The record is a 59-nucleotide RNA from Homo sapiens, which matches "mir-1911 microRNA precursor family" in Rfam. Rfam's curators put it in the seed alignment. Lineage of the source: Eukaryota > Metazoa > Euarchontoglires > Primates > Homo.

[Rfam]
Nucleotides: 059
Base pairs, nucleotide, nucleotide: 002056003055004054006053007052008051009050010049012047013046014045015044016043017042018041020039021038022037023036027032
Number, partner (000 for none) and nucleotide at each position: 001000u002056g003055a004054g005000u006053a007052c008051c009050g010049c011000c012047a013046u014045g015044u016043c017042u018041g019000u020039u021038g022037g023036g024000c025000a026000u027032c028000c029000a030000c031000a032027g033000u034000c035000u036023c037022c038021c039020a040000c041018c042017a043016g044015g045014c046013a047012u048000u049010g050009u051008g052007g053006u054004c055003u056002c057000c058000g059000c